[Rfam]
RNA sequence: GGCCGCACGUGUCGUGAGGCUUCGGCCCGAGAGGCGGGCUGGCUGGCACACCUUCCCCGGUGCCAGGCAGCUUUCCCACCGCUUUUCGGGACGAAACCUGGCGACACGUUCGCCGUUCG
Numbered sequence: 001g002g003c004c005g006c007a008c009g010u011g012u013c014g015u016g017a018g019g020c021u022u023c024g025g026c027c028c029g030a031g032a033g034g035c036g037g038g039c040u041g042g043c044u045g046g047c048a049c050a051c052c053u054u055c056c057c058c059g060g061u062g063c064c065a066g067g068c069a070g071c072u073u074u075c076c077c078a079c080c081g082c083u084u085u086u087c088g089g090g091a092c093g094a095a096a097c098c099u100g101g102c103g104a105c106a107c108g109u110u111c112g113c114c115g116u117u118c119g
Stems, first nucleotide, its partner, number of pairs: 010106006018098002021095004026090009037072005043066007

The record is a 119-nucleotide sequence from Enemella evansiae, which matches "mraW RNA" in Rfam.
The family's RNA type in Rfam is cis-regulatory element.
The source organism's lineage runs through Bacteria, Actinomycetes, Propionibacteriales, Propionibacteriaceae and Enemella.
Rfam 15.1 lists 851 matches to the family in 821 species.